The record is a 364-nucleotide RNA from Deefgea piscis, which matches "transfer-messenger RNA" in Rfam. Rfam classes the family as a non-coding RNA gene. The family is grouped with related families in Rfam's "tRNA clan". From the family's description: Bacterial tmRNA, also known as 10Sa RNA or SsrA, is named for its dual tRNA and mRNA-like properties. For this family Rfam cites "Phylogenetic analysis of tmRNA secondary structure" (Williams and Bartel, RNA, 1996).

RNA sequence: GGGGGCGCCAUGGUUUCGACGGGGGUUGCAAAGCGGGUGAGGGCAUGUCGGGAUCGCAGAUUCCCGUUAAACACUGUAUUUAUAUAGUCGCAAACGACGAAACUUACGCUCUAGCCGCUUAAUCGCGCUAGACUCUACACCACAGGGUCCAUCGGGUGGGCUGGGUCAAACCAGCAGUAGAGUCAUUAAGAUGGAAUCGCCUUAACUCGGGUUACUUGGGUUGGGGUUAAAUUUAGGUAACUCGCUCUCCUCAAGCCUGCCCAUCGGCGUGAAAGGGAGUUAAAACCCAAAAGAUAAGGCUAAACAUGUAGAACUCUUCGUAGAGUGCUUCCGGACGGGGGUUCGACUCCCCCCGCCUCCACCA
Numbered sequence: 001g002g003g004g005g006c007g008c009c010a011u012g013g014u015u016u017c018g019a020c021g022g023g024g025g026u027u028g029c030a031a032a033g034c035g036g037g038u039g040a041g042g043g044c045a046u047g048u049c050g051g052g053a054u055c056g057c058a059g060a061u062u063c064c065c066g067u068u069a070a071a072c073a074c075u076g077u078a079u080u081u082a083u084a085u086a087g088u089c090g091c092a093a094a095c096g097a098c099g100a101a102a103c104u105u106a107c108g109c110u111c112u113a114g115c116c117g118c119u120u121a122a123u124c125g126c127g128c129u130a131g132a133c134u135c136u137a138c139a140c141c142a143c144a145g146g147g148u149c150c151a152u153c154g155g156g157u158g159g160g161c162u163g164g165g166u167c168a169a170a171c172c173a174g175c176a177g178u179a180g181a182g183u184c185a186u187u188a189a190g191a192u193g194g195a196a197u198c199g200c201c202u203u204a205a206c207u208c209g210g211g212u213u214a215c216u217u218g219g220g221u222u223g224g225g226g227u228u229a230a231a232u233u234u235a236g237g238u239a240a241c242u243c244g245c246u247c248u249c250c251u252c253a254a255g256c257c258u259g260c261c262c263a264u265c266g267g268c269g270u271g272a273a274a275g276g277g278a279g280u281u282a283a284a285a286c287c288c289a290a291a292a293g294a295u296a297a298g299g300c301u302a303a304a305c306a307u308g309u310a311g312a313a314c315u316c317u318u319c320g321u322a323g324a325g326u327g328c329u330u331c332c333g334g335a336c337g338g339g340g341g342u343u344c345g346a347c348u349c350c351c352c353c354c355g356c357c358u359c360c361a362c363c364a
Stems, first nucleotide, its partner, number of pairs: 001360007020333007033321005039316003044308005049066005056077004110132005116127003133182006140159004148195006200226007210242006244280006251273001255268003259300003263295003337353005